[Rfam]
Overview:
Rfam assigns this 114-nucleotide RNA from Triticum turgidum to the family "Small nucleolar RNA SNORD14". A search with the family's covariance model found it, with a score of 74 bits. On this family, see Samarsky et al., Nucleic Acids Res 1996: "An essential domain in Saccharomyces cerevisiae U14 snoRNA is absent in vertebrates, but conserved in other yeasts". It is annotated as a C/D-box small nucleolar RNA. U14 small nucleolar RNA (U14 snoRNA) is required for early cleavages of eukaryotic precursor rRNAs. In yeasts, this molecule possess a stem-loop region (known as the Y-domain) which is essential for function. Rfam 15.1 lists 4,559 matches to the family in 936 species.
RNA sequence: UGGCAAUGAUCUUAAAUUUAAGGCUUGUUUCUCAAAUCAUUCGCAGUUGCCUAGCUUUCACCCUGCUAGGCUGAGAGCUAAUGCUGCUAAUUCCUUCCUUGGAUGUCAGAGCCU
Numbered sequence: 001u002g003g004c005a006a007u008g009a010u011c012u013u014a015a016a017u018u019u020a021a022g023g024c025u026u027g028u029u030u031c032u033c034a035a036a037u038c039a040u041u042c043g044c045a046g047u048u049g050c051c052u053a054g055c056u057u058u059c060a061c062c063c064u065g066c067u068a069g070g071c072u073g074a075g076a077g078c079u080a081a082u083g084c085u086g087c088u089a090a091u092u093c094c095u096u097c098c099u100u101g102g103a104u105g106u107c108a109g110a111g112c113c114u
Base pairs, nucleotide, nucleotide: 002113003112004111054078055077056076057075058074059073